[Rfam]
RNA sequence: GUCACUUCAUGAUCCCCUCUGGCUAAACCCGUCCAGGCCAGCCAGAGUGGUGAUGUCCGUGAC
Numbered sequence: 001g002u003c004a005c006u007u008c009a010u011g012a013u014c015c016c017c018u019c020u021g022g023c024u025a026a027a028c029c030c031g032u033c034c035a036g037g038c039c040a041g042c043c044a045g046a047g048u049g050g051u052g053a054u055g056u057c058c059g060u061g062a063c
Stems, first nucleotide, its partner, number of pairs: 001063005014050002017047007029036001
Dot-bracket structure: (((((........((.(((((((.....(......)....))))))).))........)))))

The family of this 63-nucleotide RNA sequence from Microcebus murinus is "Selenocysteine insertion sequence 1". It scores 39 bits against the family's covariance model. The base pairs follow the family's consensus structure, which is taken from published work. Rfam's curators write: The incorporation of selenocysteine into a protein sequence is directed by an in-frame UGA codon (usually a stop codon) within the coding region of the mRNA. Selenoprotein mRNAs contain a conserved secondary structure in the 3' UTR that is required for the distinction of UGA stop from UGA selenocysteine. For this family Rfam cites "A novel RNA structural motif in the selenocysteine insertion element of eukaryotic selenoprotein mRNAs" (Walczak et al., RNA, 1996).